[Rfam]
RNA sequence: AAUUGAAUCGGUGAUGGAGUUCGCCGUUAACCGCUGGCAUAAUAAUCAGCUGAUGACUCCUACCUGUUG
Numbered sequence: 001a002a003u004u005g006a007a008u009c010g011g012u013g014a015u016g017g018a019g020u021u022c023g024c025c026g027u028u029a030a031c032c033g034c035u036g037g038c039a040u041a042a043u044a045a046u047c048a049g050c051u052g053a054u055g056a057c058u059c060c061u062a063c064c065u066g067u068u069g
Stems, first nucleotide, its partner, number of pairs: 010025004016060006033050004
Description: Shown here is a 69-nucleotide sequence from Paenibacillus bovis, a member of the family "Fluoride riboswitch aptamer (crcB RNA motif)". Taxonomically the source falls in Paenibacillus (Bacteria, Bacillati, Bacillota, Bacilli). Pairs were carried over by alignment from the consensus structure, which is taken from published work.